[Rfam]
RNA sequence: GGACACGACUCUGGAGAGUCCCGGCACGGAUGCGGUUCAGCCGUUUUUCCGGUACGGGCGCCGAAGGUGCACGGAAGCUUACGAGGCUUUCUUAUCUCUCAGGCAAAAGGACAGAGAAAGAUUU
Numbered sequence: 001g002g003a004c005a006c007g008a009c010u011c012u013g014g015a016g017a018g019u020c021c022c023g024g025c026a027c028g029g030a031u032g033c034g035g036u037u038c039a040g041c042c043g044u045u046u047u048u049c050c051g052g053u054a055c056g057g058g059c060g061c062c063g064a065a066g067g068u069g070c071a072c073g074g075a076a077g078c079u080u081a082c083g084a085g086g087c088u089u090u091c092u093u094a095u096c097u098c099u100c101a102g103g104c105a106a107a108a109g110g111a112c113a114g115a116g117a118a119a120g121a122u123u124u
Stems, first nucleotide, its partner, number of pairs: 009116005020058004060104003063100002067098001069096001073091008
Dot-bracket structure: ........(((((......((((...............................)))).(((((..(.(...((((((((...))))))))....).))).))).......)))))........
Shown here is a 124-nucleotide RNA from Succiniclasticum ruminis, a member of the family "Glycine riboswitch aptamer".